[Rfam]
Nucleotides: 122
Base pairs, nucleotide, nucleotide: 002049003048004047006045008043009042014036017033019030056116058114059113060112061111062110069101070100071099072098073097074096075095078093079092080091083088
Number, partner (000 for none) and nucleotide at each position: 001000u002049u003048g004047c005000a006045c007000a008043u009042u010000c011000a012000a013000g014036u015000c016000c017033u018000u019030c020000u021000a022000u023000g024000g025000c026000u027000u028000g029000a030019g031000u032000g033017a034000a035000u036014a037000a038000c039000a040000c041000a042009g043008g044000g045006g046000g047004g048003c049002a050000g051000a052000a053000g054000a055000a056116u057000u058114c059113u060112c061111u062110c063000a064000a065000a066000a067000a068000c069101c070100u071099g072098a073097a074096g075095u076000g077000c078093u079092g080091g081000c082000u083088u084000u085000g086000a087000u088083a089000u090000u091080c092079c093078a094000u095075g096074c097073u098072u099071c100070g101069g102000a103000u104000c105000c106000u107000g108000u109000c110062g111061g112060g113059a114058g115000a116056a117000a118000c119000a120000a121000c122000u

This 122-nucleotide RNA from Danio rerio belongs to the Rfam family "Small nucleolar RNA SNORA26". Rfam links the family to the GO terms nucleolus and RNA processing. The organism belongs to Danio, within Eukaryota. Rfam's curators write: The snoRNA HBI-6 belong to the H/ACA family of snoRNAs, guiding the pseudouridylation of position U4522 if the 28S rRNA. HBI-6 is the human orthologue of mouse MBI-6 snoRNA. The literature on the family includes a 2001 paper in EMBO J by Huttenhofer et al., "RNomics: an experimental approach that identifies 201 candidates for novel, small, non-messenger RNAs in mouse". By type it is an H/ACA-box small nucleolar RNA.